[Rfam]
RNA: Clostridioides difficile sRNA included into helicase gene
RNA sequence: AAUAAGGCAGUUCUUGAUGAGCAGAUAGAAGAGGAAAGAAGACUUUUUUAUGUUGCAAUGACAAGGGCAAAAGAAAAGUUGUAUCUUCUGUCCCCCAA
Numbered sequence: 001a002a003u004a005a006g007g008c009a010g011u012u013c014u015u016g017a018u019g020a021g022c023a024g025a026u027a028g029a030a031g032a033g034g035a036a037a038g039a040a041g042a043c044u045u046u047u048u049u050a051u052g053u054u055g056c057a058a059u060g061a062c063a064a065g066g067g068c069a070a071a072a073g074a075a076a077a078g079u080u081g082u083a084u085c086u087u088c089u090g091u092c093c094c095c096c097a098a
Base pairs, nucleotide, nucleotide: 006094010092020054021053022052023051029045030044031043055091056090057089060085061084063082066080067079068078